The family of this 127-nucleotide RNA sequence from Treponema pedis is "TD-1 RNA". It is annotated as a cis-regulatory element. On this family, see Weinberg et al., Nucleic Acids Res 2007: "Identification of 22 candidate structured RNAs in bacteria using the CMfinder comparative genomics pipeline". The match comes from Rfam's covariance-model search (85 bits).

[Rfam]
RNA sequence: AAUAAGCUGUCGAGUUUGCUUUUCGGCAAACGUCGGAUAUUGUAUGCCGUUUCUCACUUUGUUGCAAAACGGCGGAAAAUAAACAAUCCUCGGAAUUUGAAAAUUCCUGCGGUUGUUUAUUUUAAAG
Numbered sequence: 001a002a003u004a005a006g007c008u009g010u011c012g013a014g015u016u017u018g019c020u021u022u023u024c025g026g027c028a029a030a031c032g033u034c035g036g037a038u039a040u041u042g043u044a045u046g047c048c049g050u051u052u053c054u055c056a057c058u059u060u061g062u063u064g065c066a067a068a069a070c071g072g073c074g075g076a077a078a079a080u081a082a083a084c085a086a087u088c089c090u091c092g093g094a095a096u097u098u099g100a101a102a103a104u105u106c107c108u109g110c111g112g113u114u115g116u117u118u119a120u121u122u123u124a125a126a127g
Stems, first nucleotide, its partner, number of pairs: 012034002014031007046073007078121009088112002092107006
Dot-bracket structure: ...........(((((((((....))))))).))...........(((((((..............)))))))....(((((((((.((..((((((....))))))...)))))))))))......